[Rfam]
RNA sequence: GCAUUUGCAUCCCACCUGCGCCUCCCCUAUAUAAGGGGUGCUCGCAAGGGCUAUGGCAAUAAACGGUCAUUGUAAUAAACCCAUCGGACCCGGGGGCAGUACCCGGCGUCUCCACCAUCUUCCCUACCGGGGAAGCCAAUGGGGACGAAACAGGAUCGACGAGGGCGUAAAGAGUGUGCUUUUGCUCGGUGAGGUACCACCGUUAUCGGUCCGAAACUUAUAGUUGCUAAUGACAACAAUAAGGCUCCGGUCGCUCUCGCCGCGUAAGCGGUGCUAGCACUGGGAAUUAAAGUCCUCCGCUCCUAGCCGGGCGGCAGGCGGGGUUCGCAGGCACCUGGCAACAGAAGCCUGCACU
Numbered sequence: 001g002c003a004u005u006u007g008c009a010u011c012c013c014a015c016c017u018g019c020g021c022c023u024c025c026c027c028u029a030u031a032u033a034a035g036g037g038g039u040g041c042u043c044g045c046a047a048g049g050g051c052u053a054u055g056g057c058a059a060u061a062a063a064c065g066g067u068c069a070u071u072g073u074a075a076u077a078a079a080c081c082c083a084u085c086g087g088a089c090c091c092g093g094g095g096g097c098a099g100u101a102c103c104c105g106g107c108g109u110c111u112c113c114a115c116c117a118u119c120u121u122c123c124c125u126a127c128c129g130g131g132g133a134a135g136c137c138a139a140u141g142g143g144g145a146c147g148a149a150a151c152a153g154g155a156u157c158g159a160c161g162a163g164g165g166c167g168u169a170a171a172g173a174g175u176g177u178g179c180u181u182u183u184g185c186u187c188g189g190u191g192a193g194g195u196a197c198c199a200c201c202g203u204u205a206u207c208g209g210u211c212c213g214a215a216a217c218u219u220a221u222a223g224u225u226g227c228u229a230a231u232g233a234c235a236a237c238a239a240u241a242a243g244g245c246u247c248c249g250g251u252c253g254c255u256c257u258c259g260c261c262g263c264g265u266a267a268g269c270g271g272u273g274c275u276a277g278c279a280c281u282g283g284g285a286a287u288u289a290a291a292g293u294c295c296u297c298c299g300c301u302c303c304u305a306g307c308c309g310g311g312c313g314g315c316a317g318g319c320g321g322g323g324u325u326c327g328c329a330g331g332c333a334c335c336u337g338g339c340a341a342c343a344g345a346a347g348c349c350u351g352c353a354c355u
Base pairs, nucleotide, nucleotide: 040051041050042049043048055186056185057184058183059182065179068176069175070174071173080165081164082163084162085161086160090106091105092104093103094102107147108146109145110144111143112142113141187202188201189200190199193212194211196210197209198208321336322335323334324333327352328351329350330349331348332347

Shown here is a 355-nucleotide RNA sequence from Devosia chinhatensis, a member of the family "Alphaproteobacteria transfer-messenger RNA". From the family's description: Bacterial tmRNA, also known as 10Sa RNA or SsrA, is named for its dual tRNA and mRNA-like properties. Its role is to liberate the mRNA from a stalled ribosome. To accomplish this part of the tmRNA is used as a reading frame that ends in a translation stop signal. A search with the family's covariance model found it, with a score of 282 bits. Pairs were carried over by alignment from the consensus structure, which is taken from published work.